[Rfam]
RNA sequence: CUGCGGUGAUGACUUCCUUAGGACACCUUUGGACUUAAGUGUGAAAAGAAACGUUGUUUCUGAGCGGC
Number, nucleotide and partner (000 for none) at each position: 001c067002u066003g065004c064005g000006g000007u000008g000009a000010u000011g000012a000013c000014u000015u000016c000017c000018u000019u000020a000021g000022g000023a000024c000025a000026c000027c000028u000029u000030u000031g000032g000033a000034c000035u000036u000037a000038a000039g000040u000041g000042u000043g000044a000045a000046a000047a000048g000049a000050a000051a000052c000053g000054u000055u000056g000057u000058u000059u000060c000061u000062g000063a000064g004065c003066g002067g001068c000
RNA: Small nucleolar RNA SNORD58
Organism: Pterocles gutturalis